The family of this 113-nucleotide RNA sequence from Pantoea sp. Aalb is "Gammaprotebacteria rimP leader". NCBI's taxonomy places the organism under Bacteria, Pseudomonadati, Pseudomonadota, Enterobacterales, Pantoea. Pairs were carried over by alignment from the consensus structure, which is taken from published work. The family's RNA type in Rfam is cis-regulatory leader. For this family Rfam cites "Premature terminator analysis sheds light on a hidden world of bacterial transcriptional attenuation" (Naville and Gautheret, Genome Biol, 2010).
RNA sequence: UUUAAAUACUAUUAUAUUAGGGUUAGUUAGAUAAUAAAAAACCCCGAAAGUUCGGGGUUUUUUAUUAUCUAAAAAUUAAAUGAGCUAAAUGGGCAACUAAGAGCCCUUUUUUU
Numbered sequence: 001u002u003u004a005a006a007u008a009c010u011a012u013u014a015u016a017u018u019a020g021g022g023u024u025a026g027u028u029a030g031a032u033a034a035u036a037a038a039a040a041a042c043c044c045c046g047a048a049a050g051u052u053c054g055g056g057g058u059u060u061u062u063u064a065u066u067a068u069c070u071a072a073a074a075a076u077u078a079a080a081u082g083a084g085c086u087a088a089a090u091g092g093g094c095a096a097c098u099a100a101g102a103g104c105c106c107u108u109u110u111u112u113u
Stems, first nucleotide, its partner, number of pairs: 038061009091106004